[Rfam]
RNA sequence: AAUUCUGUUCAUAAGAAUAAAGAGAAGCGGAACUAUUCUUUACCUGAUAAGUACCAAUACAUAAUGAGA
Numbered sequence: 001a002a003u004u005c006u007g008u009u010c011a012u013a014a015g016a017a018u019a020a021a022g023a024g025a026a027g028c029g030g031a032a033c034u035a036u037u038c039u040u041u042a043c044c045u046g047a048u049a050a051g052u053a054c055c056a057a058u059a060c061a062u063a064a065u066g067a068g069a
Base pairs, nucleotide, nucleotide: 003022004021006019007018008017009016010015043068045066051060052059053058